[Rfam]
RNA sequence: UAGGCGGAUGCCGAAAAGCCUUAAACAGAGUAAGCC
Numbered sequence: 001u002a003g004g005c006g007g008a009u010g011c012c013g014a015a016a017a018g019c020c021u022u023a024a025a026c027a028g029a030g031u032a033a034g035c036c
Stems, first nucleotide, its partner, number of pairs: 002021004010035002
DUF805b RNA: a 36-nucleotide sequence from Phaeodactylibacter xiamenensis. The source organism's lineage runs through Bacteria, Saprospiria, Saprospirales, Haliscomenobacteraceae and Phaeodactylibacter. The match comes from Rfam's covariance-model search (42 bits). Its Rfam clan is "DUF805 clan".